[Rfam]
Rfam assigns this 88-nucleotide sequence from Archaeoglobus profundus to the family "L4-Archaeoglobi ribosomal protein leades".
On this family, see Eckert and Weinberg, BMC Microbiol 2020: "Discovery of 20 novel ribosomal leader candidates in bacteria and archaea".
NCBI's taxonomy places the organism under Archaea, Methanobacteriati, Methanobacteriota, Archaeoglobus, Archaeoglobus profundus.
RNA sequence: CUGACGGGACACGGUGGGUCGAUAUAGGUGUAAAGGCCCUGGCACCCCUUAAGAGCAAGGCCAAGAGGGGUGCCCGUGUCACCGUCAG
Number, nucleotide and partner (000 for none) at each position: 001c088002u087003g086004a085005c084006g000007g000008g000009a079010c078011a077012c076013g075014g074015u000016g039017g038018g037019u000020c000021g000022a000023u034024a000025u032026a031027g000028g000029u000030g000031u026032a025033a000034a023035g000036g000037c018038c017039c016040u000041g000042g073043c072044a071045c070046c069047c068048c067049u066050u065051a000052a000053g000054a000055g000056c000057a000058a000059g000060g000061c000062c000063a000064a000065g050066a049067g048068g047069g046070g045071u044072g043073c042074c014075c013076g012077u011078g010079u009080c000081a000082c000083c000084g005085u004086c003087a002088g001